[Rfam]
RNA sequence: UACCUUUGCAACCGAAUUAGGAAAACCCCAAUUCAUACAUAAUAAUCAUUUAAACAAUAUUAGCAUG
Numbered sequence: 001u002a003c004c005u006u007u008g009c010a011a012c013c014g015a016a017u018u019a020g021g022a023a024a025a026c027c028c029c030a031a032u033u034c035a036u037a038c039a040u041a042a043u044a045a046u047c048a049u050u051u052a053a054a055c056a057a058u059a060u061u062a063g064c065a066u067g
Stems, first nucleotide, its partner, number of pairs: 014034005
RNA: S15-Flavobacteria ribosomal protein leader